[Rfam]
Nucleotides: 097
Stems, first nucleotide, its partner, number of pairs: 002092006013081004018077004026071005
Number, partner (000 for none) and nucleotide at each position: 001000g002092g003091g004090c005089u006088g007087g008000c009000u010000u011000u012000a013081g014080c015079u016078c017000a018077g019076c020075g021074g022000u023000u024000c025000c026071u027070u028069c029068g030067a031000c032000u033000g034000a035000c036000a037000u038000g039000c040000a041000a042000u043000u044000u045000a046000a047000u048000u049000a050000c051000c052000c053000u054000c055000u056000u057000c058000g059000g060000g061000g062000g063000u064000g065000g066000u067030u068029c069028g070027a071026g072000a073000c074021c075020c076019g077018c078016g079015g080014g081013c082000g083000c084000u085000c086000u087007c088006c089005a090004g091003u092002c093000c094000u095000u096000u097000u